[Rfam]
Background
This 319-nucleotide RNA from Salix dunnii belongs to the Rfam family "Plant signal recognition particle RNA".
RNA sequence: UCCGAGCUCAGAGCAGCGUGGGCUUGCAACUCGAGUGAGGGCAUUAGGUUCAUUUUUUCGGGGGACGUUGAUUCGGUCACGGAAGGUUGGAUUUGUCAUGGCUUACGCUAGCUUUGCCCAUUCCAAGCCACGAGUGGGUCCUGGCUAACCUGUCGAAGGCUUUGUUAGCCUGUCUCUUAUAGUGGAGGGUACCGCGUGAGGUUGGUUUCACAGAGCAGCGACCGCCUUCCUUCUCUUGGCAGUGGAAGGAUAACAGGCCAGCGCCAAUCAGAUCCAUAUGAACCACCUGAUGGGCUGUUUCAACCGGACCAUCAGUUUU
Numbered sequence: 001u002c003c004g005a006g007c008u009c010a011g012a013g014c015a016g017c018g019u020g021g022g023c024u025u026g027c028a029a030c031u032c033g034a035g036u037g038a039g040g041g042c043a044u045u046a047g048g049u050u051c052a053u054u055u056u057u058u059c060g061g062g063g064g065a066c067g068u069u070g071a072u073u074c075g076g077u078c079a080c081g082g083a084a085g086g087u088u089g090g091a092u093u094u095g096u097c098a099u100g101g102c103u104u105a106c107g108c109u110a111g112c113u114u115u116g117c118c119c120a121u122u123c124c125a126a127g128c129c130a131c132g133a134g135u136g137g138g139u140c141c142u143g144g145c146u147a148a149c150c151u152g153u154c155g156a157a158g159g160c161u162u163u164g165u166u167a168g169c170c171u172g173u174c175u176c177u178u179a180u181a182g183u184g185g186a187g188g189g190u191a192c193c194g195c196g197u198g199a200g201g202u203u204g205g206u207u208u209c210a211c212a213g214a215g216c217a218g219c220g221a222c223c224g225c226c227u228u229c230c231u232u233c234u235c236u237u238g239g240c241a242g243u244g245g246a247a248g249g250a251u252a253a254c255a256g257g258c259c260a261g262c263g264c265c266a267a268u269c270a271g272a273u274c275c276a277u278a279u280g281a282a283c284c285a286c287c288u289g290a291u292g293g294g295c296u297g298u299u300u301c302a303a304c305c306g307g308a309c310c311a312u313c314a315g316u317u318u319u
Stems, first nucleotide, its partner, number of pairs: 002041002004025007030039003046318005052312002066306002068303003074297004080292002084288004089275007099266003103263001108261002111258004116254001118249002121247005127240004132235003137176002141172001143170007152161001154159001177182001184230006195220003202213003

Its family is annotated with signal recognition particle, endoplasmic reticulum targeting and SRP-dependent cotranslational protein targeting to membrane, signal sequence recognition in the Gene Ontology. The literature on the family includes a 2002 paper in Curr Opin Struct Biol by Wild et al., "Towards the structure of the mammalian signal recognition particle".